[Rfam]
RNA: Small nucleolar RNA SNORD10
Organism: Ictidomys tridecemlineatus
Nucleotides: 143
Base pairs, nucleotide, nucleotide: 001143002142003141004140040106041105042104043103044102045101046100
Number, partner (000 for none) and nucleotide at each position: 001143g002142c003141u004140c005000u006000a007000u008000g009000a010000u011000g012000a013000a014000c015000c016000c017000c018000a019000u020000g021000c022000g023000u024000g025000u026000c027000a028000u029000c030000u031000g032000a033000g034000c035000c036000u037000g038000g039000c040106u041105u042104c043103c044102c045101u046100g047000u048000c049000a050000u051000c052000u053000u054000a055000g056000c057000c058000c059000a060000g061000g062000u063000a064000g065000u066000g067000u068000u069000c070000u071000a072000c073000u074000u075000c076000c077000u078000a079000g080000g081000g082000c083000u084000g085000c086000u087000g088000c089000u090000g091000u092000c093000u094000g095000g096000c097000u098000u099000c100046c101045a102044g103043g104042g105041a106040g107000g108000u109000c110000c111000c112000a113000g114000g115000c116000a117000a118000a119000g120000g121000a122000u123000c124000a125000g126000u127000c128000c129000u130000u131000g132000u133000a134000u135000u136000c137000u138000g139000a140004g141003a142002g143001c